[Rfam]
RNA: S10-Clostridia ribosomal protein leader
RNA sequence: CCCAUGUGAUGAAGUGAAAGGUUGCUGACACACCCGGCCGCUUUGCCAUGGCGGAUGUUCAGGUAAUUUUCACGGAGAAUGUCUAUUUUAAAAGUAGGCGAAAA
Numbered sequence: 001c002c003c004a005u006g007u008g009a010u011g012a013a014g015u016g017a018a019a020g021g022u023u024g025c026u027g028a029c030a031c032a033c034c035c036g037g038c039c040g041c042u043u044u045g046c047c048a049u050g051g052c053g054g055a056u057g058u059u060c061a062g063g064u065a066a067u068u069u070u071c072a073c074g075g076a077g078a079a080u081g082u083c084u085a086u087u088u089u090a091a092a093a094g095u096a097g098g099c100g101a102a103a104a
Stems, first nucleotide, its partner, number of pairs: 014073003018070004025062004080103001082101002087098003